The family of this 101-nucleotide RNA sequence from Microlunatus endophyticus is "Fluoride riboswitch aptamer (crcB RNA motif)". The base pairs follow the family's consensus structure, which is taken from published work. NCBI's taxonomy places the organism under Bacteria, Bacillati, Actinomycetes, Propionibacteriales, Microlunatus.

RNA sequence: AUCAACGACGGCGAUGGAGUUCGCCUGGCACGCUCCAGGAUCCAAGUUGAGAUCUGAAGUGGCUCGCCGAACCGCAGCUUGCUGAUAACUCCUACCUGGAU
Numbered sequence: 001a002u003c004a005a006c007g008a009c010g011g012c013g014a015u016g017g018a019g020u021u022c023g024c025c026u027g028g029c030a031c032g033c034u035c036c037a038g039g040a041u042c043c044a045a046g047u048u049g050a051g052a053u054c055u056g057a058a059g060u061g062g063c064u065c066g067c068c069g070a071a072c073c074g075c076a077g078c079u080u081g082c083u084g085a086u087a088a089c090u091c092c093u094a095c096c097u098g099g100a101u
Stems, first nucleotide, its partner, number of pairs: 010025004016092006074082002